[Rfam]
RNA sequence: AGCUUUGCGCAGAGGUGAUAACGUGACCAAUGAGGCUCUGUCGAGGUGCGUUUAUUGCUGGUUGAAAACUUUUCUGUAUUGUGUAUUAUAUGUUAGACAGAGCGAAGGAAAGCAAAAGCCGGAAACAGC
Number, nucleotide and partner (000 for none) at each position: 001a000002g000003c000004u000005u000006u000007g000008c000009g000010c000011a000012g000013a000014g000015g000016u000017g000018a000019u000020a052021a051022c050023g049024u048025g000026a047027c046028c045029a000030a000031u000032g000033a000034g042035g041036c040037u000038c000039u000040g036041u035042c034043g000044a000045g028046g027047u026048g024049c023050g022051u021052u020053u000054a000055u000056u000057g000058c000059u000060g000061g000062u000063u000064g000065a000066a000067a000068a000069c000070u000071u000072u000073u000074c000075u000076g000077u000078a000079u000080u000081g000082u000083g113084u112085a000086u109087u108088a000089u106090a000091u104092g103093u102094u101095a000096g000097a000098c000099a000100g000101a094102g093103c092104g091105a000106a089107g000108g087109a086110a000111a000112g084113c083114a000115a000116a000117a000118g000119c000120c000121g000122g000123a000124a000125a000126c000127a000128g000129c000
A member of the RNA family "U4 spliceosomal RNA" from Oesophagostomum dentatum, 129 nucleotides long. The match comes from Rfam's covariance-model search (71 bits). U4 small nuclear RNA (U4 snRNA) is a component of the major U2-dependent spliceosome. Lineage of the source: Eukaryota > Bilateria > Strongyloidea > Strongylidae > Oesophagostomum. Pairs were carried over by alignment from the consensus structure, which is taken from published work. Its Rfam clan is "U4 clan". Rfam classes the family as a spliceosomal small nuclear RNA. The literature on the family includes a 2017 paper in Cell by Bertram et al., "Cryo-EM Structure of a Pre-catalytic Human Spliceosome Primed for Activation".